Rfam assigns this 87-nucleotide sequence from Gossypium mustelinum to the family "MIR7486 microRNA precursor family".
Its family is annotated with RISC complex and miRNA-mediated post-transcriptional gene silencing in the Gene Ontology.
[Rfam]
RNA sequence: CACGUCAGCGCGCUAUGCUGACGUGGACACAAAUCGCGUUCUUAAGGCUGCGCUUUGUGUCCACAUCAGCACAGCGCGUUGUCGUGG
Numbered sequence: 001c002a003c004g005u006c007a008g009c010g011c012g013c014u015a016u017g018c019u020g021a022c023g024u025g026g027a028c029a030c031a032a033a034u035c036g037c038g039u040u041c042u043u044a045a046g047g048c049u050g051c052g053c054u055u056u057g058u059g060u061c062c063a064c065a066u067c068a069g070c071a072c073a074g075c076g077c078g079u080u081g082u083c084g085u086g087g
Stems, first nucleotide, its partner, number of pairs: 001086004006081009016071006023064011035052004040047002